[Rfam]
RNA sequence: UAGAGCAAGGCAGAUGAGGGAAGUCGGCAAAAUGGAUCCGUAACUUCGGGACAAGGAUUGGCUCUGAGGGCCGGGCGUGAUGCUGCCCCUCGGCGCGCCUGCUGCGCGUGCGCGCACGCGAUUCGCGAGUUUUGCGGUCGUGCUCGUGCGGCUCGCGCGCGCGAUCGGUUCGCUAGCGCGAUGAACGGCCAGCUCAGAACUGGAGCGGACAAGGGGAAUCCGACUGUUUAAUUAAAACCAAGCAUUGCGAUGGCCCCGGCGGGUGUUGACGCAAUGUGAUUUCUGCCCAGUGCUCUGAAUGUCAACGUGGUGAAAUUCAACCAAGCGCGGGUAAACGGCGGGAGUAACUAUGACUCUCUUAAGGUAGCCAAAUGCCUCGUCAUCUAAUUAGUGACGCGCAUGAAUGGAUUAACGAGAUUCCCACUGUCCCCAUCUGCCAUCUAGCGAACCCACAGCCAAGGGAACGGGCUUGGCA
Numbered sequence: 001u002a003g004a005g006c007a008a009g010g011c012a013g014a015u016g017a018g019g020g021a022a023g024u025c026g027g028c029a030a031a032a033u034g035g036a037u038c039c040g041u042a043a044c045u046u047c048g049g050g051a052c053a054a055g056g057a058u059u060g061g062c063u064c065u066g067a068g069g070g071c072c073g074g075g076c077g078u079g080a081u082g083c084u085g086c087c088c089c090u091c092g093g094c095g096c097g098c099c100u101g102c103u104g105c106g107c108g109u110g111c112g113c114g115c116a117c118g119c120g121a122u123u124c125g126c127g128a129g130u131u132u133u134g135c136g137g138u139c140g141u142g143c144u145c146g147u148g149c150g151g152c153u154c155g156c157g158c159g160c161g162c163g164a165u166c167g168g169u170u171c172g173c174u175a176g177c178g179c180g181a182u183g184a185a186c187g188g189c190c191a192g193c194u195c196a197g198a199a200c201u202g203g204a205g206c207g208g209a210c211a212a213g214g215g216g217a218a219u220c221c222g223a224c225u226g227u228u229u230a231a232u233u234a235a236a237a238c239c240a241a242g243c244a245u246u247g248c249g250a251u252g253g254c255c256c257c258g259g260c261g262g263g264u265g266u267u268g269a270c271g272c273a274a275u276g277u278g279a280u281u282u283c284u285g286c287c288c289a290g291u292g293c294u295c296u297g298a299a300u301g302u303c304a305a306c307g308u309g310g311u312g313a314a315a316u317u318c319a320a321c322c323a324a325g326c327g328c329g330g331g332u333a334a335a336c337g338g339c340g341g342g343a344g345u346a347a348c349u350a351u352g353a354c355u356c357u358c359u360u361a362a363g364g365u366a367g368c369c370a371a372a373u374g375c376c377u378c379g380u381c382a383u384c385u386a387a388u389u390a391g392u393g394a395c396g397c398g399c400a401u402g403a404a405u406g407g408a409u410u411a412a413c414g415a416g417a418u419u420c421c422c423a424c425u426g427u428c429c430c431c432a433u434c435u436g437c438c439a440u441c442u443a444g445c446g447a448a449c450c451c452a453c454a455g456c457c458a459a460g461g462g463a464a465c466g467g468g469c470u471u472g473g474c475a
Base pairs, nucleotide, nucleotide: 001443002442003441004440009438010437011436012435013434014433015432016431018429019428020427035059036058037057038056039055044049060201061200063198064197065196066195067194068193069190070189071188072187073186075179076178077177078176080174082173083172085169086168087167090164091163092162093160094159095158096157097156098155101152102151103150104149105148106147107146108145110143111142112141113140114139117136118135119134120133121132124129202206214422215421216420217419218418219417220416221414222413226238227237242277243276244275245274246273247272248271249270253264254263255262256261281408282407283406285339286338287337290336291335292332293331294330295329297328300327301326302325308319309318310317340358341357342356343355344354345353359363379395380394381393382392383391456473457472458471459470460469

Rfam assigns this 475-nucleotide part of an RNA from Babesia ovis to the family "Eukaryotic large subunit ribosomal RNA". The literature on the family includes a 2001 paper in Science by Yusupov et al., "Crystal structure of the ribosome at 5.5 A resolution". Lineage of the source: Eukaryota > Apicomplexa > Aconoidasida > Babesiidae > Babesia.